[Rfam]
The family of this 105-nucleotide RNA sequence from Plutella xylostella is "mir-8517 microRNA precursor family".
Pairs were carried over by alignment from the consensus structure, which was predicted with RNAalifold.
Its family is annotated with RISC complex and miRNA-mediated post-transcriptional gene silencing in the Gene Ontology.

RNA sequence: UUACUGGACUCUUUAGCUAUUGAACUGUUUUGUCACUCUCUGUCAAAGAACUUGUUCUCUGUCAGAGAGUGACAGAACAGUUCAAUAGCUAAAGUGCCAAGUAAC
Number, nucleotide and partner (000 for none) at each position: 001u104002u103003a102004c101005u100006g000007g000008a000009c000010u000011c094012u093013u092014u091015a090016g089017c088018u087019a086020u085021u084022g083023a082024a081025c080026u079027g078028u077029u066030u065031u064032g063033u000034c061035a060036c000037u000038c000039u000040c000041u000042g000043u000044c000045a000046a000047a000048g000049a056050a055051c000052u000053u000054g000055u050056u049057c000058u000059c000060u035061g034062u000063c032064a031065g030066a029067g000068a000069g000070u000071g000072a000073c000074a000075g000076a000077a028078c027079a026080g025081u024082u023083c022084a021085a020086u019087a018088g017089c016090u015091a014092a013093a012094g011095u000096g000097c000098c000099a000100a005101g004102u003103a002104a001105c000